[Rfam]
RNA sequence: AGUGCUGAUAGAGGUGCGGAAUUCAAGAGUAAAAACCUGGAGAAGUAUGAGCUUCCAUGAAGGGUUUUGAAAGGGAAGGACGCCGAAGGAAGACGAGACUCAUACCUUGUUUUUCUGGUCCGACAUUUAAAAAAUGGCGGAUUGUCAGGAUGUAUAUCCUGGAGAGCUAUCUCACUG
Numbered sequence: 001a002g003u004g005c006u007g008a009u010a011g012a013g014g015u016g017c018g019g020a021a022u023u024c025a026a027g028a029g030u031a032a033a034a035a036c037c038u039g040g041a042g043a044a045g046u047a048u049g050a051g052c053u054u055c056c057a058u059g060a061a062g063g064g065u066u067u068u069g070a071a072a073g074g075g076a077a078g079g080a081c082g083c084c085g086a087a088g089g090a091a092g093a094c095g096a097g098a099c100u101c102a103u104a105c106c107u108u109g110u111u112u113u114u115c116u117g118g119u120c121c122g123a124c125a126u127u128u129a130a131a132a133a134a135u136g137g138c139g140g141a142u143u144g145u146c147a148g149g150a151u152g153u154a155u156a157u158c159c160u161g162g163a164g165a166g167c168u169a170u171c172u173c174a175c176u177g
Stems, first nucleotide, its partner, number of pairs: 007171005016083003022077003032068007087116011117143006124136004145162007
Lysine riboswitch aptamer: a 177-nucleotide RNA from Peribacillus muralis. The match comes from Rfam's covariance-model search (120 bits). NCBI's taxonomy places the organism under Bacteria, Bacillota, Caryophanales, Bacillaceae, Peribacillus.